This 158-nucleotide sequence from Musa balbisiana belongs to the Rfam family "U4 spliceosomal RNA". By type it is a spliceosomal small nuclear RNA. It scores 52 bits against the family's covariance model. Lineage of the source: Eukaryota > Spermatophyta > Magnoliopsida > Liliopsida > Musa. U4 small nuclear RNA (U4 snRNA) is a component of the major U2-dependent spliceosome.
[Rfam]
Nucleotides: 158
Base pairs, nucleotide, nucleotide: 011044012043013042014041017039019037025034026033027032087120088119089118092115093114094113096111098109099108100107133158134157135156136155
Number, partner (000 for none) and nucleotide at each position: 001000a002000u003000u004000c005000a006000u007000c008000a009000a010000u011044g012043u013042c014041g015000c016000a017039g018000a019037u020000a021000g022000u023000g024000a025034g026033g027032u028000u029000a030000u031000a032027a033026c034025c035000g036000a037019g038000g039017c040000a041014c042013g043012a044011c045000a046000a047000u048000u049000g050000c051000u052000a053000g054000u055000u056000g057000a058000a059000a060000a061000c062000a063000g064000u065000u066000u067000g068000g069000a070000a071000a072000c073000u074000a075000u076000u077000u078000c079000c080000a081000a082000a083000c084000c085000c086000c087120c088119u089118c090000u091000u092115u093114g094113g095000c096111u097000a098109g099108g100107g101000u102000u103000u104000c105000u106000c107100c108099c109098u110000g111096a112000a113094c114093c115092a116000u117000u118089g119088a120087g121000a122000a123000u124000u125000u126000u127000u128000g129000g130000a131000a132000g133158g134157g135156c136155u137000c138000c139000c140000u141000c142000u143000a144000c145000u146000c147000c148000a149000g150000g151000g152000u153000a154000a155136a156135g157134c158133u